[Rfam]
RNA sequence: GCACGCGCAACACCAGCAUCACGGCAGGAGCGGGGGAACCACAGGUAAGUCGCGCUGCCCGGACUGGUCCGGGCAGCGCUAGGGGUGAGGUCGCGCUUGGCGCGGCCGGGCAACUCCAGCCCGAACCCGACAGCUCACCUCGUAGGCGUGGGAGAGGAAACAC
Numbered sequence: 001g002c003a004c005g006c007g008c009a010a011c012a013c014c015a016g017c018a019u020c021a022c023g024g025c026a027g028g029a030g031c032g033g034g035g036g037a038a039c040c041a042c043a044g045g046u047a048a049g050u051c052g053c054g055c056u057g058c059c060c061g062g063a064c065u066g067g068u069c070c071g072g073g074c075a076g077c078g079c080u081a082g083g084g085g086u087g088a089g090g091u092c093g094c095g096c097u098u099g100g101c102g103c104g105g106c107c108g109g110g111c112a113a114c115u116c117c118a119g120c121c122c123g124a125a126c127c128c129g130a131c132a133g134c135u136c137a138c139c140u141c142g143u144a145g146g147c148g149u150g151g152g153a154g155a156g157g158a159a160a161c162a163c
Stems, first nucleotide, its partner, number of pairs: 004148003008145001013028002030143006040082001083128003091105004108122004
RNA: c-di-AMP riboswitch aptamer (ydaO/yuaA leader)
Organism: Kitasatospora aureofaciens